RNA sequence: GUAUGGCGGGAGUUAUGUAUCAAUUAGAUGUGUGAAGUGCACUCAUGAACUCAAUAUUUGAUGCUUAUUGAUAUUCUCACUUGCCGAUU
Numbered sequence: 001g002u003a004u005g006g007c008g009g010g011a012g013u014u015a016u017g018u019a020u021c022a023a024u025u026a027g028a029u030g031u032g033u034g035a036a037g038u039g040c041a042c043u044c045a046u047g048a049a050c051u052c053a054a055u056a057u058u059u060g061a062u063g064c065u066u067a068u069u070g071a072u073a074u075u076c077u078c079a080c081u082u083g084c085c086g087a088u089u
Stems, first nucleotide, its partner, number of pairs: 001089001004086007